[Rfam]
RNA: permuted transfer-messenger RNA
Organism: Kordiimonas sediminis
RNA sequence: GGCGAUAAACGGCGCAUUAAGUAGGUAGAGCGGACCCGGGGGCAGUACCCGGCGCCUCCACCACCAGCAGUCAAAAAACGCAGGGGCAUGCCUGCUUACUCUACUCUGACUGUUGCUGAUGGGGGCGAACCAGGAUCGACGCAUAUUGAACGGUGUAAGCCUUUCGCUCAGGAUGGUACCGCUGUGAUGGACCAAACUUUAUAAAUGCAAACGACAAUGACGUCGAGUUCGCUGUUGCUGCGUAA
Numbered sequence: 001g002g003c004g005a006u007a008a009a010c011g012g013c014g015c016a017u018u019a020a021g022u023a024g025g026u027a028g029a030g031c032g033g034a035c036c037c038g039g040g041g042g043c044a045g046u047a048c049c050c051g052g053c054g055c056c057u058c059c060a061c062c063a064c065c066a067g068c069a070g071u072c073a074a075a076a077a078a079c080g081c082a083g084g085g086g087c088a089u090g091c092c093u094g095c096u097u098a099c100u101c102u103a104c105u106c107u108g109a110c111u112g113u114u115g116c117u118g119a120u121g122g123g124g125g126c127g128a129a130c131c132a133g134g135a136u137c138g139a140c141g142c143a144u145a146u147u148g149a150a151c152g153g154u155g156u157a158a159g160c161c162u163u164u165c166g167c168u169c170a171g172g173a174u175g176g177u178a179c180c181g182c183u184g185u186g187a188u189g190g191a192c193c194a195a196a197c198u199u200u201a202u203a204a205a206u207g208c209a210a211a212c213g214a215c216a217a218u219g220a221c222g223u224c225g226a227g228u229u230c231g232c233u234g235u236u237g238c239u240g241c242g243u244a245a
Base pairs, nucleotide, nucleotide: 001168002167003166004165005164014156015155016154017153026145027144030142031141032140036052037051038050039049040048053127054126055125056124057123058122059121169184170183171182